A member of the RNA family "TPP riboswitch aptamer (THI element)" from Ruegeria intermedia, 105 nucleotides long.
The family's consensus secondary structure is taken from published work.
NCBI's taxonomy places the organism under Bacteria, Pseudomonadati, Pseudomonadota, Roseobacteraceae, Ruegeria.
RNA sequence: CGCCAACCGUUGGGGUGCCCCUUGCCCGGGGCUGAGAGGCGCGCGCGUCAACCCAUCGAACCUGAUCCGGGCAAUACCGGCGGAGGGAACGGUCUAAAACAUGCA
Dot-bracket structure: .....(((((((((..(((((......)))))......(((....)))...)))).....(((...((((......))))...)))..)))))............

The match comes from Rfam's covariance-model search (79 bits).